Rfam assigns this 46-nucleotide RNA from Desulfonema ishimotonii to the family "Acido-Lenti-1 RNA".
The family has 87 seed sequences and 2,607 matches in Rfam 15.1.
Lineage of the source: Bacteria > Pseudomonadati > Desulfobacteria > Desulfobacterales > Desulfonema.
The family's consensus secondary structure is taken from published work.
It scores 46 bits against the family's covariance model.
It is annotated as a small RNA.
RNA sequence: CCCGGCAAUGAAUUGCCGGGCUAUUAUCGUUCGUCCCGCCGGGACG
Numbered sequence: 001c002c003c004g005g006c007a008a009u010g011a012a013u014u015g016c017c018g019g020g021c022u023a024u025u026a027u028c029g030u031u032c033g034u035c036c037c038g039c040c041g042g043g044a045c046g
Base pairs, nucleotide, nucleotide: 001020002019003018004017005016006015007014008013033045034044035043036042037041